[Rfam]
RNA sequence: UAAGGCAUGUUCAGAGAGCGCGAAAGCCACCGAAGAGGCAAGUUGUUGAAAAACAAUGAAUCUUUCAGGUAAAAGGAUGAAUAUGUUGGG
Numbered sequence: 001u002a003a004g005g006c007a008u009g010u011u012c013a014g015a016g017a018g019c020g021c022g023a024a025a026g027c028c029a030c031c032g033a034a035g036a037g038g039c040a041a042g043u044u045g046u047u048g049a050a051a052a053a054c055a056a057u058g059a060a061u062c063u064u065u066c067a068g069g070u071a072a073a074a075g076g077a078u079g080a081a082u083a084u085g086u087u088g089g090g
Stems, first nucleotide, its partner, number of pairs: 006085008020027002029070003032066002036064003042057004
The family of this 90-nucleotide RNA from Oribacterium sinus is "Glycine riboswitch aptamer". The source organism's lineage runs through Bacteria, Bacillati, Bacillota, Clostridia and Oribacterium sinus. Rfam's curators write: This family represents the bacterial glycine riboswitch. Glycine riboswitches usually consist of two metabolite-binding aptamers domains with similar structures in tandem. Rfam links the family to the GO term glycine biosynthetic process. It scores 54 bits against the family's covariance model.